The family of this 139-nucleotide sequence from Mus musculus is "Small nucleolar RNA SNORA48". About the family: The snoRNA ACA 48 has been identified to guide pseudouridylation of the residue U3797 in the 28S rRNA subunit. Gene Ontology terms of the family: RNA processing and nucleolus. Rfam 15.1 lists 2,109 matches to the family in 150 species. NCBI's taxonomy places the organism under Eukaryota, Chordata, Craniata, Rodentia, Mus. The family is grouped with related families in Rfam's "SNORA48 clan". The family's consensus secondary structure was predicted with RNAalifold.

RNA sequence: GACCCCUGACAAUGGGCAAAGAGACACUUUGUGGGGUUGCUCUUAUAUCAGACAGGGGCAGAGCAGGUGGCAGUCCUUUGUUCUCCUAACUUGAUGUCUGGCUUGGUGGCCUAAGCUGUUUUAUGCCUAGAACACCUAA
Numbered sequence: 001g002a003c004c005c006c007u008g009a010c011a012a013u014g015g016g017c018a019a020a021g022a023g024a025c026a027c028u029u030u031g032u033g034g035g036g037u038u039g040c041u042c043u044u045a046u047a048u049c050a051g052a053c054a055g056g057g058g059c060a061g062a063g064c065a066g067g068u069g070g071c072a073g074u075c076c077u078u079u080g081u082u083c084u085c086c087u088a089a090c091u092u093g094a095u096g097u098c099u100g101g102c103u104u105g106g107u108g109g110c111c112u113a114a115g116c117u118g119u120u121u122u123a124u125g126c127c128u129a130g131a132a133c134a135c136c137u138a139a
Base pairs, nucleotide, nucleotide: 003058004057005056006055007054008053013050014049015048019044020043021042023038024037025036027034028033079134080133081132082131083130084129093127095125099123100122101121104118105117107115
Dot-bracket structure: ..((((((....(((...(((.(((.((....)).)))...)))...)))..))))))....................((((((........(.(...(((..((.(.......).))..))).).).)))))).....